mir-5928 microRNA precursor family: a 75-nucleotide RNA sequence from Haemonchus placei.
The base pairs follow the family's consensus structure, which was predicted with RNAalifold.
The family has 5 seed sequences and 1,672 matches in Rfam 15.1.
[Rfam]
Nucleotides: 075
Stems, first nucleotide, its partner, number of pairs: 001074007009066001011064007019056004025050006032043004
Number, partner (000 for none) and nucleotide at each position: 001074g002073g003072c004071u005070c006069a007068a008000a009066u010000u011064u012063g013062a014061a015060g016059u017058a018000a019056g020055g021054u022053g023000a024000a025050u026049u027048a028047g029046u030045a031000a032043g033042g034041u035040u036000a037000g038000c039000u040035g041034a042033c043032c044000c045030u046029a047028c048027u049026g050025a051000u052000c053022u054021a055020c056019u057000g058017u059016a060015c061014u062013u063012u064011g065000a066009a067000a068007u069006u070005g071004g072003g073002c074001c075000c